[Rfam]
MIR5084 microRNA precursor family: a 122-nucleotide sequence from Triticum aestivum. Gene Ontology terms of the family: miRNA-mediated post-transcriptional gene silencing and RISC complex. Rfam 15.1 lists 152 matches to the family in 5 species.

RNA sequence: UAACGGGUUAGGAUCCUCUGCAGUACUGUACCGUGCUGUACAGUCACUGCCAUGUGGGACCUGGCCCCACAUGUCAUCGACACUACAGCAUCAUAUGGUACUGCAGAGGAUCUCAACCCGUG
Numbered sequence: 001u002a003a004c005g006g007g008u009u010a011g012g013a014u015c016c017u018c019u020g021c022a023g024u025a026c027u028g029u030a031c032c033g034u035g036c037u038g039u040a041c042a043g044u045c046a047c048u049g050c051c052a053u054g055u056g057g058g059a060c061c062u063g064g065c066c067c068c069a070c071a072u073g074u075c076a077u078c079g080a081c082a083c084u085a086c087a088g089c090a091u092c093a094u095a096u097g098g099u100a101c102u103g104c105a106g107a108g109g110a111u112c113u114c115a116a117c118c119c120g121u122g
Base pairs, nucleotide, nucleotide: 003121004120005119006118007117008116009115011113012112013111014110015109016108017107018106019105020104021103022102023101024100025099026098027097028096029095030094033091034090035089036088037087038086039085040084051073052072053071054070055069056068057067058066060064